[Rfam]
RNA sequence: CUAAGAAAAAAGGAUAAUACCUGAAAUGGCGGGAAACAAAGCUAUAGGGUCUAAGUUUUAUAAACUACGAUAGCCUGGUUGCCAAG
Numbered sequence: 001c002u003a004a005g006a007a008a009a010a011a012g013g014a015u016a017a018u019a020c021c022u023g024a025a026a027u028g029g030c031g032g033g034a035a036a037c038a039a040a041g042c043u044a045u046a047g048g049g050u051c052u053a054a055g056u057u058u059u060a061u062a063a064a065c066u067a068c069g070a071u072a073g074c075c076u077g078g079u080u081g082c083c084a085a086g
Stems, first nucleotide, its partner, number of pairs: 012037001018031001020029002040080004046076003049071003057064002
The family of this 86-nucleotide RNA sequence from Oceanobacillus piezotolerans is "c-di-GMP-I riboswitch aptamer". NCBI's taxonomy places the organism under Bacteria, Bacillati, Bacilli, Bacillaceae, Oceanobacillus. Pairs were carried over by alignment from the consensus structure, which is taken from published work. A search with the family's covariance model found it, with a score of 42 bits.